RNA sequence: CCUCUUCGAUCUGCUGCGGGCAGAUGAAAUGGAUAUGGGAGUCGAUGCCGCCCGCGGUGAGGAUCAUGCCUUCGCCGGCGAUGACCUCGGUGGCGGCGCCGAUGGGUACGCUGACGCCGGGCUGGAUGUCCGGGUUGCCGGCCUUGCCGAUGGCCUGGAUGCGCCCGUUCUUGAGGCCGACAUCGGCCUUGACGAUGCCCCAGUGAUCGACGAUCAGGGCGUUGGUGAUGACGGUGUCGACCACCUCGGCUGCCAGCAGCUGGCUCUGGCCCAUGCCGUCGCGGAUG
Numbered sequence: 001c002c003u004c005u006u007c008g009a010u011c012u013g014c015u016g017c018g019g020g021c022a023g024a025u026g027a028a029a030u031g032g033a034u035a036u037g038g039g040a041g042u043c044g045a046u047g048c049c050g051c052c053c054g055c056g057g058u059g060a061g062g063a064u065c066a067u068g069c070c071u072u073c074g075c076c077g078g079c080g081a082u083g084a085c086c087u088c089g090g091u092g093g094c095g096g097c098g099c100c101g102a103u104g105g106g107u108a109c110g111c112u113g114a115c116g117c118c119g120g121g122c123u124g125g126a127u128g129u130c131c132g133g134g135u136u137g138c139c140g141g142c143c144u145u146g147c148c149g150a151u152g153g154c155c156u157g158g159a160u161g162c163g164c165c166c167g168u169u170c171u172u173g174a175g176g177c178c179g180a181c182a183u184c185g186g187c188c189u190u191g192a193c194g195a196u197g198c199c200c201c202a203g204u205g206a207u208c209g210a211c212g213a214u215c216a217g218g219g220c221g222u223u224g225g226u227g228a229u230g231a232c233g234g235u236g237u238c239g240a241c242c243a244c245c246u247c248g249g250c251u252g253c254c255a256g257c258a259g260c261u262g263g264c265u266c267u268g269g270c271c272c273a274u275g276c277c278g279u280c281g282c283g284g285a286u287g
Stems, first nucleotide, its partner, number of pairs: 001287001003285001005283001007281003011158003016154002018076002022072002031052002034050001037048001039046001057069003077148002081144001083142001085140001090138005095130003103124001105123003109119001110117002163270001165269003170263002173260001176257001186220006200209001223255003230247002234245001
Shown here is a 287-nucleotide RNA sequence from Pseudomonas oryzihabitans, a member of the family "5' ureB small RNA". Gene Ontology term of the family: negative regulation of gene expression. The family has 13 seed sequences and 4,812 matches in Rfam 15.1. For this family Rfam cites "Helicobacter pylori 5'ureB-sRNA, a cis-encoded antisense small RNA, negatively regulates ureAB expression by transcription termination" (Wen et al., J Bacteriol, 2013).